[Rfam]
RNA sequence: UAGAACUAAUGCUCUGAGAAGUGGAAUGACGGAGUAACGUCCCGAAACGCUUCCCUUAAUACUCCGACUGGCAAUUUGAAAUGUAAUGAGAGAAUUGUCAGACGCUCGGUGAAGUCGAGAGAGAGUUGCCCAAACAGGACAAAUAUGUUGCUGUGGAAAGCUAUUCAGCGAUGAAUGGUGCAACCUAUAUUGCGGAGGUCUAUAAA
Number, nucleotide and partner (000 for none) at each position: 001u000002a000003g000004a000005a000006c000007u000008a000009a000010u000011g000012c000013u000014c000015u000016g000017a000018g053019a052020a051021g050022u049023g048024g000025a000026a000027u000028g000029a000030c000031g043032g042033a000034g040035u000036a000037a000038c000039g000040u034041c000042c032043c031044g000045a000046a000047a000048c023049g022050c021051u020052u019053c018054c198055c197056u196057u195058a000059a000060u000061a000062c000063u000064c109065c108066g107067a106068c101069u100070g099071g098072c097073a096074a095075u094076u093077u092078g000079a000080a000081a000082u000083g000084u000085a000086a000087u000088g000089a000090g000091a000092g077093a076094a075095u074096u073097g072098u071099c070100a069101g068102a000103c000104g000105c000106u067107c066108g065109g064110u000111g000112a000113a000114g000115u000116c194117g193118a000119g191120a190121g000122a000123g000124a000125g184126u183127u182128g181129c180130c156131c155132a154133a000134a000135c000136a000137g152138g151139a000140c000141a000142a000143a000144u000145a000146u000147g000148u000149u000150g000151c138152u137153g000154u132155g131156g130157a000158a000159a000160g179161c178162u177163a176164u175165u174166c173167a172168g000169c000170g000171a000172u167173g166174a165175a164176u163177g162178g161179u160180g129181c128182a127183a126184c125185c000186u000187a000188u000189a000190u120191u119192g000193c117194g116195g057196a056197g055198g054199u000200c000201u000202a000203u000204a000205a000206a000
RNA: Group II catalytic intron D1-D4-5